The record is an 80-nucleotide sequence, which matches "RAGATH-10 RNA" in Rfam. It is annotated as a small RNA. It is one of the family's seed sequences.
[Rfam]
RNA sequence: GAGACCUCGUCUCGUGUGCAUCAGAAAUGCACGCACUCGCGAAGUCCGCGAGCAGCACUCCAGCUGGAUGAGGAGAAAGG
Numbered sequence: 001g002a003g004a005c006c007u008c009g010u011c012u013c014g015u016g017u018g019c020a021u022c023a024g025a026a027a028u029g030c031a032c033g034c035a036c037u038c039g040c041g042a043a044g045u046c047c048g049c050g051a052g053c054a055g056c057a058c059u060c061c062a063g064c065u066g067g068a069u070g071a072g073g074a075g076a077a078a079g080g
Base pairs, nucleotide, nucleotide: 005073006072007071008070009069010068011067015033016032017031018030019029020028021027036052037051038050039049040048041047053066054065055064056063